[Rfam]
RNA sequence: CACGCCUGCGAGGAUCAGUUGGUCCCAACAGGUCCCUCGGAUCAGCCGCAAGGUUAGAUUUGAGACGAAAGGGUGGUUUUUAUGGAUGUAUUUUGUCCACCCGUCAAUGCCCUCCAUGCCUCUUGCUGGCGAGAACUCUGGAGAGGAUUCAAAAACUUGUCCUAGUG
Numbered sequence: 001c002a003c004g005c006c007u008g009c010g011a012g013g014a015u016c017a018g019u020u021g022g023u024c025c026c027a028a029c030a031g032g033u034c035c036c037u038c039g040g041a042u043c044a045g046c047c048g049c050a051a052g053g054u055u056a057g058a059u060u061u062g063a064g065a066c067g068a069a070a071g072g073g074u075g076g077u078u079u080u081u082a083u084g085g086a087u088g089u090a091u092u093u094u095g096u097c098c099a100c101c102c103g104u105c106a107a108u109g110c111c112c113u114c115c116a117u118g119c120c121u122c123u124u125g126c127u128g129g130c131g132a133g134a135a136c137u138c139u140g141g142a143g144a145g146g147a148u149u150c151a152a153a154a155a156c157u158u159g160u161c162c163u164a165g166u167g
Stems, first nucleotide, its partner, number of pairs: 007030002012026002016021001035067001036064008047052001085161003088156002091154005110146002112143004121134005

A member of the RNA family "Ascomycota telomerase RNA" from Fusarium longipes, 167 nucleotides of a longer RNA. The match comes from Rfam's covariance-model search (356 bits). Rfam classes the family as a non-coding RNA gene. For this family Rfam cites "The common ancestral core of vertebrate and fungal telomerase RNAs" (Qi et al., Nucleic Acids Res, 2013).